[Rfam]
RNA sequence: AUUUUCGAAAGAUCUCUCAGGAUCGCUGGAGUUGAUUAAUAUAGUUUUACGAGGUAGAGAUAAUGAUUAGAGGAAUCAGGGAAAUCGUUUUCCUUGACCUAUUCUCAAACUCCCAAUACGUAAUAAGGGAUUAAUAACUUAAUUGUAUUUUUCCCACUAUAAAUAAAAUAACUCCAAGUGGGCCAUUUUUGGUAAGCAGAACUGGCGAUGAGGGAUGCUCCUAACGCUUGGAUAAGGUGCCUAAAUAUUCGCUCAUGAGAUCCCAUAAAAGGUGUUGGUUCAUAAUGACAGUAGGACGGUGGUCAUGGAAGUCGAAAUCCGCUAAGGAGUGUGUAACAACUCACCUACCGAAUGAACUAGCCCUGAAAAUGGAUGGCGCUAAAGCGGAUUACCGAUACCAAGCCAUAGAAAGAGAUUUAAGGGUUUUUUGGGUUCCCCCGACUAAUCUUUUUUUGAAUCUUUCUAUGAGUAGAAAAUCGUGGGGUUUGUGUAGAAGCAAGAUGCGUGAGCUCUUGUGGAACAUAUCCCUAGUGCAGAU
Numbered sequence: 001a002u003u004u005u006c007g008a009a010a011g012a013u014c015u016c017u018c019a020g021g022a023u024c025g026c027u028g029g030a031g032u033u034g035a036u037u038a039a040u041a042u043a044g045u046u047u048u049a050c051g052a053g054g055u056a057g058a059g060a061u062a063a064u065g066a067u068u069a070g071a072g073g074a075a076u077c078a079g080g081g082a083a084a085u086c087g088u089u090u091u092c093c094u095u096g097a098c099c100u101a102u103u104c105u106c107a108a109a110c111u112c113c114c115a116a117u118a119c120g121u122a123a124u125a126a127g128g129g130a131u132u133a134a135u136a137a138c139u140u141a142a143u144u145g146u147a148u149u150u151u152u153c154c155c156a157c158u159a160u161a162a163a164u165a166a167a168a169u170a171a172c173u174c175c176a177a178g179u180g181g182g183c184c185a186u187u188u189u190u191g192g193u194a195a196g197c198a199g200a201a202c203u204g205g206c207g208a209u210g211a212g213g214g215a216u217g218c219u220c221c222u223a224a225c226g227c228u229u230g231g232a233u234a235a236g237g238u239g240c241c242u243a244a245a246u247a248u249u250c251g252c253u254c255a256u257g258a259g260a261u262c263c264c265a266u267a268a269a270a271g272g273u274g275u276u277g278g279u280u281c282a283u284a285a286u287g288a289c290a291g292u293a294g295g296a297c298g299g300u301g302g303u304c305a306u307g308g309a310a311g312u313c314g315a316a317a318u319c320c321g322c323u324a325a326g327g328a329g330u331g332u333g334u335a336a337c338a339a340c341u342c343a344c345c346u347a348c349c350g351a352a353u354g355a356a357c358u359a360g361c362c363c364u365g366a367a368a369a370u371g372g373a374u375g376g377c378g379c380u381a382a383a384g385c386g387g388a389u390u391a392c393c394g395a396u397a398c399c400a401a402g403c404c405a406u407a408g409a410a411a412g413a414g415a416u417u418u419a420a421g422g423g424u425u426u427u428u429u430g431g432g433u434u435c436c437c438c439c440g441a442c443u444a445a446u447c448u449u450u451u452u453u454u455g456a457a458u459c460u461u462u463c464u465a466u467g468a469g470u471a472g473a474a475a476a477u478c479g480u481g482g483g484g485u486u487u488g489u490g491u492a493g494a495a496g497c498a499a500g501a502u503g504c505g506u507g508a509g510c511u512c513u514u515g516u517g518g519a520a521c522a523u524a525u526c527c528c529u530a531g532u533g534c535a536g537a538u
Stems, first nucleotide, its partner, number of pairs: 001477006011024005027176007045125001047123005057113001058111002064107003069102001071100003076097006083090001127155004133149004182206004187201005211222003226403005236393003245390001247389001250386003270364003274361010291348005297321003303315002322326001327342001331340002404467009478533001480530005487522003496516002503510002
The record is a 538-nucleotide part of an RNA from Plasmodium yoelii, which matches "Eukaryotic large subunit ribosomal RNA" in Rfam. On this family, see Yusupov et al., Science 2001: "Crystal structure of the ribosome at 5.5 A resolution". A search with the family's covariance model found it, with a score of 2724 bits. NCBI's taxonomy places the organism under Eukaryota, Haemosporida, Plasmodiidae, Plasmodium, Plasmodium yoelii. Rfam links the family to the GO terms ribosome and structural constituent of ribosome.